c-di-GMP-I riboswitch aptamer: a 92-nucleotide RNA sequence from Orenia metallireducens.
A search with the family's covariance model found it, with a score of 81 bits.
Taxonomically the source falls in Orenia (Bacteria, Bacillati, Halanaerobiales, Halobacteroidaceae).
RNA sequence: AAAUAGAAAGGGCAAACAUACCAAAAGGUAUGGACGCAAAGCCAUGGGUCUAAGGAUAUAGUAUUUAUAUCUAUGAUUGCCAGGUUGCCAUU
Numbered sequence: 001a002a003a004u005a006g007a008a009a010g011g012g013c014a015a016a017c018a019u020a021c022c023a024a025a026a027g028g029u030a031u032g033g034a035c036g037c038a039a040a041g042c043c044a045u046g047g048g049u050c051u052a053a054g055g056a057u058a059u060a061g062u063a064u065u066u067a068u069a070u071c072u073a074u075g076a077u078u079g080c081c082a083g084g085u086u087g088c089c090a091u092u
Stems, first nucleotide, its partner, number of pairs: 012037002017032006040086004045082003048077003055071007